RNA: CRISPR RNA direct repeat element
Organism: Tolypothrix tenuis
RNA sequence: CUUUCAACCCACCACCAGCCGUGAGGGUUAUUGAAAC
Numbered sequence: 001c002u003u004u005c006a007a008c009c010c011a012c013c014a015c016c017a018g019c020c021g022u023g024a025g026g027g028u029u030a031u032u033g034a035a036a037c
Stems, first nucleotide, its partner, number of pairs: 005033003009027002013023003